[Rfam]
Rfam assigns this 219-nucleotide RNA to the family "Plant small nucleolar RNA U3". It is annotated as a C/D-box small nucleolar RNA. Clan: U3 clan.

RNA sequence: ACGACCUUACUUGAACAAGAUCUGUUCUAUAGGCUCGUACCACUGUAUCGUUGACUUCUAAGGAGAUAGGAAACCAAGUCUGGUGGAUGAAUCGUGGUCAUGAAACUCGAGUGUGAUGAUUGUUCUUCAGGGCCUUUCGGGGUCAUUGUGUGCAGUAGAUGAUUGUUCUCAGCCUGGUUUGCCCGUCCCUGAGAUGGUCUCAUGGCAGUCUGACAGACU
Number, nucleotide and partner (000 for none) at each position: 001a038002c037003g035004a000005c033006c032007u031008u000009a000010c000011u000012u000013g027014a026015a025016c024017a023018a000019g000020a000021u000022c000023u017024g016025u015026u014027c013028u000029a000030u000031a007032g006033g005034c000035u003036c000037g002038u001039a000040c000041c000042a000043c069044u068045g067046u066047a000048u064049c063050g000051u061052u060053g059054a000055c000056u000057u000058c000059u053060a052061a051062g000063g049064a048065g000066a046067u045068a044069g043070g000071a000072a000073a000074c000075c000076a000077a000078g218079u217080c216081u215082g214083g000084u000085g000086g000087a000088u000089g000090a000091a000092u000093c000094g000095u000096g000097g206098u205099c204100a203101u202102g201103a200104a000105a198106c197107u196108c000109g000110a167111g166112u165113g164114u000115g000116a000117u000118g000119a156120u155121u154122g153123u152124u000125c150126u000127u148128c000129a146130g000131g144132g143133c142134c141135u140136u000137u000138c000139g000140g135141g134142g133143u132144c131145a000146u129147u000148g127149u000150g125151u000152g123153c122154a121155g120156u119157a000158g000159a000160u000161g000162a000163u000164u113165g112166u111167u110168c000169u192170c191171a190172g189173c000174c000175u185176g184177g183178u000179u000180u000181g000182c000183c177184c176185g175186u000187c000188c000189c172190u171191g170192a169193g000194a000195u000196g107197g106198u105199c000200u103201c102202a101203u100204g099205g098206c097207a000208g000209u000210c000211u000212g000213a000214c082215a081216g080217a079218c078219u000
The sequence is in the family's curated seed alignment. For this family Rfam cites "Comparative analysis of eukaryotic U3 snoRNA" (Marz and Stadler, RNA Biol, 2010). Its family is annotated with nucleolus and RNA processing in the Gene Ontology.